[Rfam]
RNA: mir-166 microRNA precursor family
Organism: Glycine max
RNA sequence: GUUGAGAGGAAUGUUGUCUGGCUCGAGGUCAUGAAGAUAUACAUAUGAAAGUGUUAACUUUUCAGUUAAUUUCUAGGAUAAAUUAAUGGAAAUUAAUUUAUACCCUAAAUGAUUCUCGGACCAGGCUUCAUUCCCCCCAGC
Dot-bracket structure: ((((.(.((((((..((((((..(((((.....................................................................................)))))..))))))..)))))).).))))
Numbered sequence: 001g002u003u004g005a006g007a008g009g010a011a012u013g014u015u016g017u018c019u020g021g022c023u024c025g026a027g028g029u030c031a032u033g034a035a036g037a038u039a040u041a042c043a044u045a046u047g048a049a050a051g052u053g054u055u056a057a058c059u060u061u062u063c064a065g066u067u068a069a070u071u072u073c074u075a076g077g078a079u080a081a082a083u084u085a086a087u088g089g090a091a092a093u094u095a096a097u098u099u100a101u102a103c104c105c106u107a108a109a110u111g112a113u114u115c116u117c118g119g120a121c122c123a124g125g126c127u128u129c130a131u132u133c134c135c136c137c138c139a140g141c
Stems, first nucleotide, its partner, number of pairs: 001141004006136001008134006016126006024118005